[Rfam]
RNA sequence: AAUUUCGUAGCUCAAUUGGUAGAGUAUCGGUAUUUACACCGAAGGUUGAAGGUUCGAAUCCUUUCGAAAUUA
Dot-bracket structure: (((((((..((((........)))).(((((......))))).....(((((.......)))))))))))).
Numbered sequence: 001a002a003u004u005u006c007g008u009a010g011c012u013c014a015a016u017u018g019g020u021a022g023a024g025u026a027u028c029g030g031u032a033u034u035u036a037c038a039c040c041g042a043a044g045g046u047u048g049a050a051g052g053u054u055c056g057a058a059u060c061c062u063u064u065c066g067a068a069a070u071u072a
Stems, first nucleotide, its partner, number of pairs: 001071007010025004027042005048064005

Background:
The family of this 72-nucleotide RNA from Chryseobacterium sp. Leaf404 is "tRNA". It scores 61 bits against the family's covariance model. The family's RNA type in Rfam is transfer RNA.